[Rfam]
RNA sequence: UGGUCUCUUGCUUUAACAGUGCUUGAACAGAACCU
Numbered sequence: 001u002g003g004u005c006u007c008u009u010g011c012u013u014u015a016a017c018a019g020u021g022c023u024u025g026a027a028c029a030g031a032a033c034c035u
Base pairs, nucleotide, nucleotide: 002034003033004032006031007030008029010028012027013026014025015024016023017021
RNA: Iron response element I